[Rfam]
RNA sequence: GGGGACCUUCGGGGCCCUAUAACGCAGGGAUUUACCUCCCUCAAAGCUACGGAAGACAGAGA
Numbered sequence: 001g002g003g004g005a006c007c008u009u010c011g012g013g014g015c016c017c018u019a020u021a022a023c024g025c026a027g028g029g030a031u032u033u034a035c036c037u038c039c040c041u042c043a044a045a046g047c048u049a050c051g052g053a054a055g056a057c058a059g060a061g062a
Base pairs, nucleotide, nucleotide: 001018002017003016004015006014007013008012027040028039029038030037
The family of this 62-nucleotide sequence from Marivivens niveibacter is "L2-Alphaproteobacteria ribosomal protein leader". The match comes from Rfam's covariance-model search (53 bits). The literature on the family includes a 2020 paper in BMC Microbiol by Eckert and Weinberg, "Discovery of 20 novel ribosomal leader candidates in bacteria and archaea".